[Rfam]
RNA sequence: UAAAUUAAGAAGGAGCUCCCUUCAGUCCAAACACAGAUAAAGAGAGAUGAAAACAUCUCCCGCAUCAUUCACACAGCCACUGUGGUAUAAAAUCUCUUUUCUUUUUACCAGAAGUGUUUGGAUGGAUGAGUCGGCAGAUGUUUCUACCCUCUUCUUGUUCUAUCCAUGACUGGACUGAAAGAAUCUCCUUCUAUAUCUAUC
Numbered sequence: 001u002a003a004a005u006u007a008a009g010a011a012g013g014a015g016c017u018c019c020c021u022u023c024a025g026u027c028c029a030a031a032c033a034c035a036g037a038u039a040a041a042g043a044g045a046g047a048u049g050a051a052a053a054c055a056u057c058u059c060c061c062g063c064a065u066c067a068u069u070c071a072c073a074c075a076g077c078c079a080c081u082g083u084g085g086u087a088u089a090a091a092a093u094c095u096c097u098u099u100u101c102u103u104u105u106u107a108c109c110a111g112a113a114g115u116g117u118u119u120g121g122a123u124g125g126a127u128g129a130g131u132c133g134g135c136a137g138a139u140g141u142u143u144c145u146a147c148c149c150u151c152u153u154c155u156u157g158u159u160c161u162a163u164c165c166a167u168g169a170c171u172g173g174a175c176u177g178a179a180a181g182a183a184u185c186u187c188c189u190u191c192u193a194u195a196u197c198u199a200u201c
Base pairs, nucleotide, nucleotide: 013187014186015185017183019181023177024176025175026174027173028172029171036164057137058136060134061133062132066128067127068126069125074120
Dot-bracket structure: ............(((.(.(...(((((((......(....................((.(((...((((....(.............................................)....))))...))).))..........................)......)))))))...).).)))..............